[Rfam]
RNA sequence: UGCUUCAAGGAUUAAGCCAUGCAAGUGCUGAGUAAAUGGUUAACAGUUGAUCUGCGAACGGCUCAUUAUACCAGUCGUAAUCUGCCCGGAUAAGUGGCUCAGCCAUCGAGUGGAUACCUCCACCAACCGUGAAGCUAAUACAUGGACGACAGAUUGGUACUCCGUCCAAGCAGCAAGGGGAAACCUGAGUUGUGGAGUAUCGAUGCUACUGGUCGGGAACAGAAACUAACCCGUUUCAUCGCGGAGUCUUCGUGGAAACAGACCACUGAGCGCAAGGAUUCCUUCGAGGAAACCGUGUCUGGUUGAACGACUGACCUAUCAGCUUGACUGUAGUGUAGUGGACUACAGUGGCCUUUACGGGUAACAGAGGAUCAGGGUUCGACUCUGGAGAGGGAGCCUGAGAAACGGCUACCAUGUCUAAGGACAGCAGCAGGCGCGCAAAUUGCCCAAUGCUAACACGCGCGAGGCAGCGACGAGAAGUAUUUACUGCGUUUACACUUUGUUGUGACGUAGAUAGAAAUGGAUGGCAUCCAAAACCACCACUGAGGAUCGAUCGGAGGGCAAGUCUGGUGCCAGCAGCCGCGGUAAUUCCAGCUCCGA
Numbered sequence: 001u002g003c004u005u006c007a008a009g010g011a012u013u014a015a016g017c018c019a020u021g022c023a024a025g026u027g028c029u030g031a032g033u034a035a036a037u038g039g040u041u042a043a044c045a046g047u048u049g050a051u052c053u054g055c056g057a058a059c060g061g062c063u064c065a066u067u068a069u070a071c072c073a074g075u076c077g078u079a080a081u082c083u084g085c086c087c088g089g090a091u092a093a094g095u096g097g098c099u100c101a102g103c104c105a106u107c108g109a110g111u112g113g114a115u116a117c118c119u120c121c122a123c124c125a126a127c128c129g130u131g132a133a134g135c136u137a138a139u140a141c142a143u144g145g146a147c148g149a150c151a152g153a154u155u156g157g158u159a160c161u162c163c164g165u166c167c168a169a170g171c172a173g174c175a176a177g178g179g180g181a182a183a184c185c186u187g188a189g190u191u192g193u194g195g196a197g198u199a200u201c202g203a204u205g206c207u208a209c210u211g212g213u214c215g216g217g218a219a220c221a222g223a224a225a226c227u228a229a230c231c232c233g234u235u236u237c238a239u240c241g242c243g244g245a246g247u248c249u250u251c252g253u254g255g256a257a258a259c260a261g262a263c264c265a266c267u268g269a270g271c272g273c274a275a276g277g278a279u280u281c282c283u284u285c286g287a288g289g290a291a292a293c294c295g296u297g298u299c300u301g302g303u304u305g306a307a308c309g310a311c312u313g314a315c316c317u318a319u320c321a322g323c324u325u326g327a328c329u330g331u332a333g334u335g336u337a338g339u340g341g342a343c344u345a346c347a348g349u350g351g352c353c354u355u356u357a358c359g360g361g362u363a364a365c366a367g368a369g370g371a372u373c374a375g376g377g378u379u380c381g382a383c384u385c386u387g388g389a390g391a392g393g394g395a396g397c398c399u400g401a402g403a404a405a406c407g408g409c410u411a412c413c414a415u416g417u418c419u420a421a422g423g424a425c426a427g428c429a430g431c432a433g434g435c436g437c438g439c440a441a442a443u444u445g446c447c448c449a450a451u452g453c454u455a456a457c458a459c460g461c462g463c464g465a466g467g468c469a470g471c472g473a474c475g476a477g478a479a480g481u482a483u484u485u486a487c488u489g490c491g492u493u494u495a496c497a498c499u500u501u502g503u504u505g506u507g508a509c510g511u512a513g514a515u516a517g518a519a520a521u522g523g524a525u526g527g528c529a530u531c532c533a534a535a536a537c538c539a540c541c542a543c544u545g546a547g548g549a550u551c552g553a554u555c556g557g558a559g560g561g562c563a564a565g566u567c568u569g570g571u572g573c574c575a576g577c578a579g580c581c582g583c584g585g586u587a588a589u590u591c592c593a594g595c596u597c598c599g600a
Base pairs, nucleotide, nucleotide: 004477005476006475009471010437016435017434018433020432021431022430025055026054030052031051036047037046062390063389064388072313073312074311077308078307081306082305087301088300089299090298110143111142112141118134119133121131122130123129153204154203155202156201157200160197161196162195163194164193165192210265211264212263213262214261225253226252232241233240276294277293279291280290281289282288315361316360317359322352323351324350327349328348329347330346331345332344333343334342365387366386367385368384369380370379371378372377392413393412395410396409397408415426416425417424418423443469445468446467447466451464452463453462454460484517485516486515487513488512489511490510491509492508494507495506496505497504524544526541554600555599556598557597558596559595567594568593569592570591576583577582
Dot-bracket structure: ...(((..((.....(((.(((..((...((....((........))...)).))......(((.......(((..((..((....((((...................(((.....((.(((.....))).))......))).........(((((..((((((..........................))))))..))))).....(((((..........((.....((......))..........)).......)))))..........((.((((.....)))).))...))))...))))..))).(((....(((..((((((((.......)))))))))))......)))...((((((((....))))...))))))).((.(((..........))).)).((((....))))...)))))).).....(.(((...((((.....).))).)))).)...)))......(((((((((.((((......)))))))))).)))......(.(..............)..).........((((((.......((((.....((....)).......))))))))))
Eukaryotic small subunit ribosomal RNA: a 600-nucleotide part of an RNA from Bihospites bacati. The organism belongs to Bihospites, within Eukaryota. It is one of the family's seed sequences. The family has 90 seed sequences and 75,755 matches in Rfam 15.1.